Rfam assigns this 69-nucleotide sequence from Saccharopolyspora gloriosae to the family "ASpks TB sRNA". The match comes from Rfam's covariance-model search (53 bits). Pairs were carried over by alignment from the consensus structure, which is taken from published work.
[Rfam]
RNA sequence: CUUGAUCGCGCCGAGCCGCAGCGGCUCCUGCCGGUCGCGGCCGUAGGUCGCCAGCAGCGCCCCGGCCUC
Number, nucleotide and partner (000 for none) at each position: 001c000002u000003u000004g000005a000006u000007c000008g000009c000010g000011c000012c000013g000014a026015g025016c024017c023018g000019c000020a000021g000022c000023g017024g016025c015026u014027c000028c065029u064030g063031c000032c059033g058034g000035u000036c000037g000038c000039g052040g000041c050042c000043g048044u000045a000046g000047g000048u043049c000050g041051c000052c039053a000054g000055c000056a000057g000058c033059g032060c000061c000062c000063c030064g029065g028066c000067c000068u000069c000